[Rfam]
RNA sequence: UGGCACGCGAACGUAGGGCUUGAGGUACGAAGUGUGACCUGGAUGUUGCUCGAGUGCAUGGCCGUCGCCCCCACCCCAUUGGAUCGCCACCUCAUCAGUGAGUAAAGAUCCGCAUGCAGAUCACCGUAGGAGUUCCCGCCUGUGAUACAGAUCCAGAGAGGUAAGAAAAGCAACGUAAUUAUGGGACAAACAUUAAAUAAGCAUUAAUUGUUUAUUGAAGGGCUUAAAACUUCUUUCAAGACACAAGGAAUACGGGUUAAGAAAAACAAUUUAGUGAAAUUCUUUGUCUUUUUAGAAGAUGUCUGUCCCU
Numbered sequence: 001u002g003g004c005a006c007g008c009g010a011a012c013g014u015a016g017g018g019c020u021u022g023a024g025g026u027a028c029g030a031a032g033u034g035u036g037a038c039c040u041g042g043a044u045g046u047u048g049c050u051c052g053a054g055u056g057c058a059u060g061g062c063c064g065u066c067g068c069c070c071c072c073a074c075c076c077c078a079u080u081g082g083a084u085c086g087c088c089a090c091c092u093c094a095u096c097a098g099u100g101a102g103u104a105a106a107g108a109u110c111c112g113c114a115u116g117c118a119g120a121u122c123a124c125c126g127u128a129g130g131a132g133u134u135c136c137c138g139c140c141u142g143u144g145a146u147a148c149a150g151a152u153c154c155a156g157a158g159a160g161g162u163a164a165g166a167a168a169a170g171c172a173a174c175g176u177a178a179u180u181a182u183g184g185g186a187c188a189a190a191c192a193u194u195a196a197a198u199a200a201g202c203a204u205u206a207a208u209u210g211u212u213u214a215u216u217g218a219a220g221g222g223c224u225u226a227a228a229a230c231u232u233c234u235u236u237c238a239a240g241a242c243a244c245a246a247g248g249a250a251u252a253c254g255g256g257u258u259a260a261g262a263a264a265a266a267c268a269a270u271u272u273a274g275u276g277a278a279a280u281u282c283u284u285u286g287u288c289u290u291u292u293u294a295g296a297a298g299a300u301g302u303c304u305g306u307c308c309c310u
Stems, first nucleotide, its partner, number of pairs: 006034003013028003110161002115157001121151002125144005170187001174185001176183002195236002199231001244286008254272005295310001298307003